[Rfam]
RNA sequence: CGAGCCGACCGGGCGGCCGCGGUACCGUCGGGGAACCGGCGGGUCGAGGAACGUCCGGGCUCCACAGAGCAGGGCGGUGGCUAACCGCCACCCGGGGUGACCCGCGGGACAGUGCCACAGAAAGCAAACCGCCGGCAGAUGCCGGUAAGGGUGAAACGGUGGGGCAAGAGCCCACCAGCGUGACGGGUGACCGCCACGGCUAGGUAAACCCCGCCCGGAGCAAGACCGCGCAGCAGGUGACCGCCGCAAGGCGGAAAGGGUUGCUCGCCCGUGCCUGCGGGUAGGUCGCGUGAGGCCAUCGGCAACGGUGGUCCAAGAUGGAUGGUCGCCACCGCCCAGGCCGGUAACGGCGGGCGGCAACAGAACCCGGCGUACAGGUCGGCUCGUCCG
Numbered sequence: 001c002g003a004g005c006c007g008a009c010c011g012g013g014c015g016g017c018c019g020c021g022g023u024a025c026c027g028u029c030g031g032g033g034a035a036c037c038g039g040c041g042g043g044u045c046g047a048g049g050a051a052c053g054u055c056c057g058g059g060c061u062c063c064a065c066a067g068a069g070c071a072g073g074g075c076g077g078u079g080g081c082u083a084a085c086c087g088c089c090a091c092c093c094g095g096g097g098u099g100a101c102c103c104g105c106g107g108g109a110c111a112g113u114g115c116c117a118c119a120g121a122a123a124g125c126a127a128a129c130c131g132c133c134g135g136c137a138g139a140u141g142c143c144g145g146u147a148a149g150g151g152u153g154a155a156a157c158g159g160u161g162g163g164g165c166a167a168g169a170g171c172c173c174a175c176c177a178g179c180g181u182g183a184c185g186g187g188u189g190a191c192c193g194c195c196a197c198g199g200c201u202a203g204g205u206a207a208a209c210c211c212c213g214c215c216c217g218g219a220g221c222a223a224g225a226c227c228g229c230g231c232a233g234c235a236g237g238u239g240a241c242c243g244c245c246g247c248a249a250g251g252c253g254g255a256a257a258g259g260g261u262u263g264c265u266c267g268c269c270c271g272u273g274c275c276u277g278c279g280g281g282u283a284g285g286u287c288g289c290g291u292g293a294g295g296c297c298a299u300c301g302g303c304a305a306c307g308g309u310g311g312u313c314c315a316a317g318a319u320g321g322a323u324g325g326u327c328g329c330c331a332c333c334g335c336c337c338a339g340g341c342c343g344g345u346a347a348c349g350g351c352g353g354g355c356g357g358c359a360a361c362a363g364a365a366c367c368c369g370g371c372g373u374a375c376a377g378g379u380c381g382g383c384u385c386g387u388c389c390g
Stems, first nucleotide, its partner, number of pairs: 001386010011375001012330007020046004025042005051373003055370005060220004067266004072216005077091005092106001093104004107211002112209002114205003129150002131146006158176006178200001179198004184193003224287004233278006258270004294313008
RNA: Bacterial RNase P class A